[Rfam]
RNA sequence: CACACAAAGCACAUGAUGAUGAUUGGAACUGACUUUGCAUGAAGAGCUGCAUUCAAUCCAACACUGAGCUUUGUGUU
Numbered sequence: 001c002a003c004a005c006a007a008a009g010c011a012c013a014u015g016a017u018g019a020u021g022a023u024u025g026g027a028a029c030u031g032a033c034u035u036u037g038c039a040u041g042a043a044g045a046g047c048u049g050c051a052u053u054c055a056a057u058c059c060a061a062c063a064c065u066g067a068g069c070u071u072u073g074u075g076u077u
Stems, first nucleotide, its partner, number of pairs: 002076009
RNA: Small nucleolar RNA SNORD69
Organism: Pelusios castaneus